[Rfam]
The record is a 59-nucleotide RNA sequence from Drosophila simulans, which matches "Drosophila rox1 ncRNA" in Rfam. It is one of the family's seed sequences. On this family, see Park et al., Genetics 2007: "An evolutionarily conserved domain of roX2 RNA is sufficient for induction of H4-Lys16 acetylation on the Drosophila X chromosome".
RNA sequence: UUCGUGUUUCGGAAAACGCUCUAAAAGGCGCAAUUUUAAAUCGUUUUCCGAAAUGGGAA
Numbered sequence: 001u002u003c004g005u006g007u008u009u010c011g012g013a014a015a016a017c018g019c020u021c022u023a024a025a026a027g028g029c030g031c032a033a034u035u036u037u038a039a040a041u042c043g044u045u046u047u048c049c050g051a052a053a054u055g056g057g058a059a
Stems, first nucleotide, its partner, number of pairs: 001059003005055014022038005